The family of this 103-nucleotide RNA from Azospira inquinata is "Glycine riboswitch aptamer". From the family's description: This family represents the bacterial glycine riboswitch. Glycine riboswitches usually consist of two metabolite-binding aptamers domains with similar structures in tandem. The aptamers cooperatively bind glycine to regulate the expression of downstream genes.

RNA sequence: GCCCCGCAAACGGGAGAGCGCGGCUUUUUGGGCCGCCGCCGAAGGCGCAAUCCAUUCAUUGCUCAACCCGAAAUCGCUCAGGCACAAGGACCGUUUGCAGCGU
Numbered sequence: 001g002c003c004c005c006g007c008a009a010a011c012g013g014g015a016g017a018g019c020g021c022g023g024c025u026u027u028u029u030g031g032g033c034c035g036c037c038g039c040c041g042a043a044g045g046c047g048c049a050a051u052c053c054a055u056u057c058a059u060u061g062c063u064c065a066a067c068c069c070g071a072a073a074u075c076g077c078u079c080a081g082g083c084a085c086a087a088g089g090a091c092c093g094u095u096u097g098c099a100g101c102g103u
Base pairs, nucleotide, nucleotide: 006098007097008096009095010094011093012092013091020036021035022034023033038083039082040081041079042078045077046076047075051071052070